The record is a 362-nucleotide RNA from Nitrosospira multiformis, which matches "transfer-messenger RNA" in Rfam.
By type it is a non-coding RNA gene.
Clan: tRNA clan.
RNA sequence: GGGGGCGACUUGGCUUCGACGUGGGUUGCAAAACAGAGCAGGGCAUACCGAGGACCAGUUACCUCGUAAAUACAUCUGGAAACCAAUAGUCGCAAACGACGAAAACUACGCUCUAGCCGCUUAAAUCCGGCUGGACUCCGCACCGGUGGGCCUCAACGCCGGGUCUGGCAACAGACAGCGGAGCCAUUAACGAGGAUCGCGCCCGGUAGGGUUACUUUACAGGGCGUUAAACAAUAGGUGACUCGCCUGCCAUCAGUCCGCCGGUUGACGGAUGCCAGGUUAAAUUAAAAAACAUGGCUAAGUAUGUAGAACUGCCUGUAGAGGGCUUGCGGACGCGGGUUCAAUUCCCGCCGCCUCCACCA
Number, nucleotide and partner (000 for none) at each position: 001g358002g357003g356004g355005g354006c353007g352008a000009c000010u000011u000012g000013g000014c000015u000016u000017c000018g000019a000020c331021g330022u329023g328024g327025g326026u325027u324028g000029c000030a000031a000032a000033a319034c318035a317036g316037a000038g000039c314040a313041g312042g000043g000044c306045a305046u304047a303048c302049c066050g065051a064052g063053g062054a000055c079056c078057a077058g076059u000060u074061a000062c053063c052064u051065c050066g049067u000068a000069a000070a000071u000072a000073c000074a060075u000076c058077u057078g056079g055080a000081a000082a000083c000084c000085a000086a000087u000088a000089g000090u000091c000092g000093c000094a000095a000096a000097c000098g000099a000100c000101g000102a000103a000104a000105a000106c000107u000108a000109c000110g000111c000112u135113c134114u133115a132116g131117c130118c129119g128120c000121u000122u000123a000124a000125a000126u000127c000128c119129g118130g117131c116132u115133g114134g113135a112136c183137u182138c181139c180140g179141c178142a000143c000144c161145g160146g159147u158148g000149g000150g000151c195152c194153u193154c192155a000156a000157c000158g147159c146160c145161g144162g000163g000164u000165c000166u000167g000168g000169c000170a000171a000172c000173a000174g000175a000176c000177a000178g141179c140180g139181g138182a137183g136184c000185c000186a000187u000188u000189a000190a000191c000192g154193a153194g152195g151196a000197u000198c000199g227200c226201g225202c224203c223204c222205g000206g220207u219208a000209g000210g243211g242212u241213u240214a239215c238216u000217u000218u000219a207220c206221a000222g204223g203224g202225c201226g200227u199228u000229a000230a000231a000232c000233a000234a000235u000236a000237g000238g215239u214240g213241a212242c211243u210244c000245g280246c279247c278248u277249g276250c000251c274252a273253u272254c271255a000256g269257u268258c267259c000260g298261c297262c296263g295264g293265u292266u291267g258268a257269c256270g000271g254272a253273u252274g251275c000276c249277a248278g247279g246280u245281u000282a000283a000284a000285u000286u000287a000288a000289a000290a000291a266292a265293c264294a000295u263296g262297g261298c260299u000300a000301a000302g048303u047304a046305u045306g044307u000308a000309g000310a000311a000312c041313u040314g039315c000316c036317u035318g034319u033320a000321g000322a000323g000324g027325g026326c025327u024328u023329g022330c021331g020332g000333a000334c000335g351336c350337g349338g348339g347340u000341u000342c000343a000344a000345u000346u000347c339348c338349c337350g336351c335352c007353g006354c005355c004356u003357c002358c001359a000360c000361c000362a000